Shown here is a 97-nucleotide RNA sequence from Aotus nancymaae, a member of the family "mir-544 microRNA precursor family". Pairs were carried over by alignment from the consensus structure, which was predicted with RNAalifold.
[Rfam]
RNA sequence: AUCAUCUGGAAAUCUUGUUAAAAUACAGAUUCUGAUUCAGUAGGUUGGAGUAGGGCCUGAGAUUCUGCAUUUUUAUUAAGCCUCCAGGUGAUGUUAA
Dot-bracket structure: ..(((...((...((((.(((((..((((.(((..........................))).))))..))).)).))))..))...))).......
Numbered sequence: 001a002u003c004a005u006c007u008g009g010a011a012a013u014c015u016u017g018u019u020a021a022a023a024u025a026c027a028g029a030u031u032c033u034g035a036u037u038c039a040g041u042a043g044g045u046u047g048g049a050g051u052a053g054g055g056c057c058u059g060a061g062a063u064u065c066u067g068c069a070u071u072u073u074u075a076u077u078a079a080g081c082c083u084c085c086a087g088g089u090g091a092u093g094u095u096a097a
Stems, first nucleotide, its partner, number of pairs: 003090003009084002014080004019075002021072003026067004031062003